Overview
The record is an 82-nucleotide RNA sequence from Kryptolebias marmoratus, which matches "mir-31 microRNA precursor family" in Rfam.
[Rfam]
RNA sequence: GUCCCGAAGGAAGGCAAGAUGACGGCAUAGCUGCUGAACUGCGGAGGCCGGCUAUGCCUCCAACUUGCCAUCUUUCUGUCCC
Numbered sequence: 001g002u003c004c005c006g007a008a009g010g011a012a013g014g015c016a017a018g019a020u021g022a023c024g025g026c027a028u029a030g031c032u033g034c035u036g037a038a039c040u041g042c043g044g045a046g047g048c049c050g051g052c053u054a055u056g057c058c059u060c061c062a063a064c065u066u067g068c069c070a071u072c073u074u075u076c077u078g079u080c081c082c
Stems, first nucleotide, its partner, number of pairs: 006076006013069006020062002024058008

About this RNA
The base pairs follow the family's consensus structure, which was predicted with RNAalifold.